LOOT RNA: a 120-nucleotide RNA. The family's consensus secondary structure is taken from published work. The sequence is in the family's curated seed alignment.

RNA sequence: GGCCUAAACUGCUCGAGGACGAGUAGCAUGGCCAAAAAAAACCGAUCAGGGUAUUGAGCUCCUCGUCAGAGCACCCUGAUCGGUCAUAUCCCGAAAGGGAUAUGGGUGGCGCAAGCCAUC
Numbered sequence: 001g002g003c004c005u006a007a008a009c010u011g012c013u014c015g016a017g018g019a020c021g022a023g024u025a026g027c028a029u030g031g032c033c034a035a036a037a038a039a040a041a042c043c044g045a046u047c048a049g050g051g052u053a054u055u056g057a058g059c060u061c062c063u064c065g066u067c068a069g070a071g072c073a074c075c076c077u078g079a080u081c082g083g084u085c086a087u088a089u090c091c092c093g094a095a096a097g098g099g100a101u102a103u104g105g106g107u108g109g110c111g112c113a114a115g116c117c118a119u120c
Base pairs, nucleotide, nucleotide: 001033002032003031004030009026010025011024012023013022014021015020042083043082044081045080046079047078048077049076050075051074052073058072059071060070061069085104086103087102088101089100090099091098092097105120106119107118108117109116110115